A member of the RNA family "Fluoride riboswitch aptamer (crcB RNA motif)" from Anaeroplasma bactoclasticum, 76 nucleotides long.
NCBI's taxonomy places the organism under Bacteria, Mollicutes, Anaeroplasmatales, Anaeroplasmataceae, Anaeroplasma.
It scores 40 bits against the family's covariance model.
RNA sequence: AAUUUCGUGGGGAAUGAUUGUCUCCCUUGCAGAAAUGCUAAACCGCUUAUCUAAAGCUGAUGACGUCUAUGAUUUU
Numbered sequence: 001a002a003u004u005u006c007g008u009g010g011g012g013a014a015u016g017a018u019u020g021u022c023u024c025c026c027u028u029g030c031a032g033a034a035a036u037g038c039u040a041a042a043c044c045g046c047u048u049a050u051c052u053a054a055a056g057c058u059g060a061u062g063a064c065g066u067c068u069a070u071g072a073u074u075u076u
Stems, first nucleotide, its partner, number of pairs: 010026004016067003020064003045057004